Shown here is a 47-nucleotide RNA sequence from Ranzania japonica, a member of the family "Plastid-rpl16 group II-D1 intron".
The source organism's lineage runs through Eukaryota, Tracheophyta, Magnoliopsida, Berberidoideae and Ranzania.
About the family: Plastid-rpl16 is a non-coding RNA (ncRNA) recognised in plastids. It was recognised in and intronic region of a ribosome rpl16 gene.
The family has 538 seed sequences and 1,446 matches in Rfam 15.1.
[Rfam]
RNA sequence: AAGAGCGCCGAGUCAAUAAAGACUGAGAAGAUUGGCUCAGAAAUCAA
Numbered sequence: 001a002a003g004a005g006c007g008c009c010g011a012g013u014c015a016a017u018a019a020a021g022a023c024u025g026a027g028a029a030g031a032u033u034g035g036c037u038c039a040g041a042a043a044u045c046a047a
Stems, first nucleotide, its partner, number of pairs: 008040001010038008